[Rfam]
RNA sequence: GCAGCAAGCCGUCUUAUCGCCGCGAAUAUUUUCGGGGAGGAAAGUCCGGGCAACGCAGAGCAUCCUACUUCCUAACGGGAAGGGUUCCGGGCAACCGGAAUACAGCCAGUGCCACAGAAAAUUACCGCCAGCCUUGUGCUGGUAAGGGUGAAAAGGUGCGGUAAGAGCGCACCAGCGGCUGGGUGACCAGUCCGGCUGGGUAAACCUUAGGAGUUGAAAGACCAAAUAGGCUGGCAGCGCUUCGCUUCGGCGGAGCUAAGGGCUGCUCGUCCGAUGCCAGUGGGUAGGUCGAUGGAGCCUGCGCGCGAGCGCAGGCCUAGAUAAAUGAUAAGAACGCAGCGCCUUUCGGGGCGCUGCGACAGAACCCGGCUUACAGGCUUGCUGUUAAU
Numbered sequence: 001g002c003a004g005c006a007a008g009c010c011g012u013c014u015u016a017u018c019g020c021c022g023c024g025a026a027u028a029u030u031u032u033c034g035g036g037g038a039g040g041a042a043a044g045u046c047c048g049g050g051c052a053a054c055g056c057a058g059a060g061c062a063u064c065c066u067a068c069u070u071c072c073u074a075a076c077g078g079g080a081a082g083g084g085u086u087c088c089g090g091g092c093a094a095c096c097g098g099a100a101u102a103c104a105g106c107c108a109g110u111g112c113c114a115c116a117g118a119a120a121a122u123u124a125c126c127g128c129c130a131g132c133c134u135u136g137u138g139c140u141g142g143u144a145a146g147g148g149u150g151a152a153a154a155g156g157u158g159c160g161g162u163a164a165g166a167g168c169g170c171a172c173c174a175g176c177g178g179c180u181g182g183g184u185g186a187c188c189a190g191u192c193c194g195g196c197u198g199g200g201u202a203a204a205c206c207u208u209a210g211g212a213g214u215u216g217a218a219a220g221a222c223c224a225a226a227u228a229g230g231c232u233g234g235c236a237g238c239g240c241u242u243c244g245c246u247u248c249g250g251c252g253g254a255g256c257u258a259a260g261g262g263c264u265g266c267u268c269g270u271c272c273g274a275u276g277c278c279a280g281u282g283g284g285u286a287g288g289u290c291g292a293u294g295g296a297g298c299c300u301g302c303g304c305g306c307g308a309g310c311g312c313a314g315g316c317c318u319a320g321a322u323a324a325a326u327g328a329u330a331a332g333a334a335c336g337c338a339g340c341g342c343c344u345u346u347c348g349g350g351g352c353g354c355u356g357c358g359a360c361a362g363a364a365c366c367c368g369g370c371u372u373a374c375a376g377g378c379u380u381g382c383u384g385u386u387a388a389u
Base pairs, nucleotide, nucleotide: 001385002384003383004382005381006380007379008378009377010376011374012333013332014331015330016329017328018327020037021036023034024033025032026031042372043371044370046369047368048367049366050365051216052215053214054213058268059267060266061265063212064211065210066209067208068082069081070080071079072078083103084101085100086099087098088097089096090095104207105206109205110204111201112200113199125147126146127143128142129141130140131139132138155173156172157171158170159169160168175196176194177193178192179190180189181188182187220290221289222288223287230281231280232279233278234277235276260272261271262270263269297316298315299314300313301312302311303310304309

This 389-nucleotide RNA sequence from Pontibacter rufus belongs to the Rfam family "Bacterial RNase P class A". Ribonuclease P (RNase P) is a ubiquitous endoribonuclease, found in archaea, bacteria and eukarya as well as chloroplasts and mitochondria. For this family Rfam cites "The Ribonuclease P Database" (Brown, Nucleic Acids Res, 1999). Gene Ontology terms of the family: tRNA processing, ribonuclease P activity and dimeric ribonuclease P complex. Lineage of the source: Bacteria > Pseudomonadati > Cytophagia > Hymenobacteraceae > Pontibacter.